[Rfam]
RNA: mir-92 microRNA precursor family
RNA sequence: CUUUCUGCACAGGUUGGGAUAAGUUGCAAUGCCGUGAGUGUCUAUGGUAGUGCACUUGUACCGACCUGUUGAGAUUGG
Number, nucleotide and partner (000 for none) at each position: 001c000002u000003u000004u074005c073006u072007g000008c000009a069010c068011a067012g066013g065014u064015u000016g062017g061018g000019a059020u058021a000022a056023g055024u054025u000026g053027c052028a051029a000030u049031g048032c047033c046034g045035u000036g000037a000038g000039u000040g000041u000042c000043u000044a000045u034046g033047g032048u031049a030050g000051u028052g027053c026054a024055c023056u022057u000058g020059u019060a000061c017062c016063g000064a014065c013066c012067u011068g010069u009070u000071g000072a006073g005074a004075u000076u000077g000078g000